[Rfam]
Nucleotides: 120
Base pairs, nucleotide, nucleotide: 004012006011013044014043015042016041018039021037022036023035024034047078048077049076050075051074052073054071055070056069057068058067083115084114085113086112087111088110089109090108092106093105094104095103
Number, partner (000 for none) and nucleotide at each position: 001000a002000a003000g004012g005000u006011c007000c008000g009000u010000c011006g012004c013044g014043g015042a016041u017000c018039u019000c020000c021037a022036u023035u024034c025000a026000c027000u028000c029000c030000c031000c032000u033000u034024g035023g036022a037021u038000g039018g040000a041016a042015u043014c044013c045000c046000c047078g048077g049076a050075a051074g052073g053000c054071c055070g056069g057068u058067c059000c060000c061000u062000c063000c064000c065000c066000a067058g068057a069056c070055u071054g072000u073052c074051c075050u076049u077048c078047c079000a080000c081000c082000g083115a084114g085113c086112c087111c088110c089109g090108c091000a092106g093105g094104c095103u096000a097000c098000c099000c100000c101000c102000u103095g104094g105093c106092c107000u108090g109089c110088g111087g112086g113085g114084u115083u116000u117000u118000u119000u120000u
A member of the RNA family "Xanthomonadaceae sRNA sX13" from Coralloluteibacterium stylophorae, 120 nucleotides long.
For this family Rfam cites "Genome-wide transcriptome analysis of the plant pathogen Xanthomonas identifies sRNAs with putative virulence functions" (Schmidtke et al., Nucleic Acids Res, 2011).
Rfam classes the family as a small RNA.
NCBI's taxonomy places the organism under Bacteria, Pseudomonadati, Pseudomonadota, Lysobacterales, Coralloluteibacterium.
Pairs were carried over by alignment from the consensus structure, which was predicted with CMfinder.
The match comes from Rfam's covariance-model search (59 bits).